mir-12 microRNA precursor family: a 70-nucleotide RNA from Ixodes scapularis.
Its family is annotated with miRNA-mediated post-transcriptional gene silencing and RISC complex in the Gene Ontology.
Pairs were carried over by alignment from the consensus structure, which was predicted with RNAalifold.
The source organism's lineage runs through Eukaryota, Ecdysozoa, Panarthropoda, Arthropoda and Ixodes.
[Rfam]
RNA sequence: UGGGACUGAGUAUUACAUCAGGUACUGGUCUGGUUGCUGGGUACCAGUAUCUGUGUGAUAUUCACCCCUC
Number, nucleotide and partner (000 for none) at each position: 001u000002g069003g068004g067005a000006c000007u000008g000009a062010g061011u060012a059013u000014u000015a056016c055017a054018u053019c000020a000021g051022g050023u049024a048025c047026u046027g045028g044029u043030c000031u000032g000033g000034u000035u000036g000037c000038u000039g000040g000041g000042u000043a029044c028045c027046a026047g025048u024049a023050u022051c021052u000053g018054u017055g016056u015057g000058a000059u012060a011061u010062u009063c000064a000065c000066c000067c004068c003069u002070c000